Shown here is an 87-nucleotide RNA sequence from Candidula unifasciata, a member of the family "mir-7 microRNA precursor family". On this family, see Ambros, Cell 2001: "microRNAs: tiny regulators with great potential". From the family's description: This family represents the microRNA (miRNA) precursor mir-7.

[Rfam]
RNA sequence: UGGCUGUUGUGGUCUGGAAGACUAGUGAUUUAGUUGUUUUGCAACUGAUCAACAAUAAAUCACAAUCUUCUAGGAUUACGACAGUUG
Numbered sequence: 001u002g003g004c005u006g007u008u009g010u011g012g013u014c015u016g017g018a019a020g021a022c023u024a025g026u027g028a029u030u031u032a033g034u035u036g037u038u039u040u041g042c043a044a045c046u047g048a049u050c051a052a053c054a055a056u057a058a059a060u061c062a063c064a065a066u067c068u069u070c071u072a073g074g075a076u077u078a079c080g081a082c083a084g085u086u087g
Base pairs, nucleotide, nucleotide: 002086003085004084005083006082007081008080010078011077012076013075014074015072016071017070019068020067021066023064025063026062027061028060029059030058031057033056034055035054036053037052038051